[Rfam]
RNA sequence: CACCACCACUGGGGGUGUCCGUACGGACUGAGAUUGACCCUUAUCACCUGAUCUAGAUCAUACUAGCGUAGGGAAGUGGCAUAUUUUUAUA
Numbered sequence: 001c002a003c004c005a006c007c008a009c010u011g012g013g014g015g016u017g018u019c020c021g022u023a024c025g026g027a028c029u030g031a032g033a034u035u036g037a038c039c040c041u042u043a044u045c046a047c048c049u050g051a052u053c054u055a056g057a058u059c060a061u062a063c064u065a066g067c068g069u070a071g072g073g074a075a076g077u078g079g080c081a082u083a084u085u086u087u088u089a090u091a
Stems, first nucleotide, its partner, number of pairs: 006079005011041004017028004047072004053066004
RNA: TPP riboswitch aptamer (THI element)
Organism: Jeotgalicoccus saudimassiliensis